[Rfam]
The family of this 92-nucleotide RNA sequence from Castor canadensis is "Small nucleolar RNA U83B". A search with the family's covariance model found it, with a score of 100 bits. A reference for the family is Jady and Kiss (2000), "Characterisation of the U83 and U84 small nucleolar RNAs: two novel 2'-O-ribose methylation guide RNAs that lack complementarities to ribosomal RNAs", Nucleic Acids Res. Rfam's curators write: U83B belongs to the C/D family of snoRNAs. U83B like U83A has no documented RNA target and they share the same host gene with the C/D box snoRNA U43 (RPL3). N.B. U83A/B/C have no sequence similarity with the U83 snoRNA that was cloned by Jady and Kiss (2000).
RNA sequence: GCUGUUCUGUGAUGAAUGUGGAAUGUGCGCUGGGCACAGCGCCUGAGUGAGACUGCAGAACCAUUCCCUGUUGCCUUCCUUCUGAGAACAGC
Numbered sequence: 001g002c003u004g005u006u007c008u009g010u011g012a013u014g015a016a017u018g019u020g021g022a023a024u025g026u027g028c029g030c031u032g033g034g035c036a037c038a039g040c041g042c043c044u045g046a047g048u049g050a051g052a053c054u055g056c057a058g059a060a061c062c063a064u065u066c067c068c069u070g071u072u073g074c075c076u077u078c079c080u081u082c083u084g085a086g087a088a089c090a091g092c
Base pairs, nucleotide, nucleotide: 001092002091003090004089005088